[Rfam]
RNA sequence: GUGCUUUAGGGAUGAAUUGGUCCCUCAUAUGUAAUAUCCAUCUGAAUCACUUUGUCAGUUGCCUUUUCCUUGGCAUGCUGAUCAUUAUAAGAUGGAAAAUCU
Numbered sequence: 001g002u003g004c005u006u007u008a009g010g011g012a013u014g015a016a017u018u019g020g021u022c023c024c025u026c027a028u029a030u031g032u033a034a035u036a037u038c039c040a041u042c043u044g045a046a047u048c049a050c051u052u053u054g055u056c057a058g059u060u061g062c063c064u065u066u067u068c069c070u071u072g073g074c075a076u077g078c079u080g081a082u083c084a085u086u087a088u089a090a091g092a093u094g095g096a097a098a099a100u101c102u
Stems, first nucleotide, its partner, number of pairs: 037096006054082006
About this RNA:
The record is a 102-nucleotide RNA sequence from Gossypium stocksii, which matches "Small nucleolar RNA snoR99" in Rfam. For this family Rfam cites "Experimental RNomics: identification of 140 candidates for small non-messenger RNAs in the plant Arabidopsis thaliana" (Marker et al., Curr Biol, 2002). Pairs were carried over by alignment from the consensus structure, which was predicted with WAR.